[Rfam]
SAM riboswitch aptamer (S box leader): a 118-nucleotide RNA sequence from Spirosoma agri. Rfam links the family to the GO term regulation of gene expression. The match comes from Rfam's covariance-model search (67 bits). Rfam's curators write: The SAM riboswitch is found upstream of a number of genes which code for proteins involved in methionine or cysteine biosynthesis in Gram-positive bacteria. The family's consensus secondary structure is taken from published work.
RNA sequence: UGCUUAUCAAGAAAGACGGAGGGAUUGGACCCUGCGAUGUCUUGGCAACCAGCCGCUUACUCUACAAGCCGGAAAAGGUGCCGCUUUCCACCCCAGUUUGCGCGGGGACAGAUAAGUU
Dot-bracket structure: .(((((((....(((((...(((..[[[[)))......)))))((((.((..((................))....))))))...(]]]]((((.........))))..)))))))).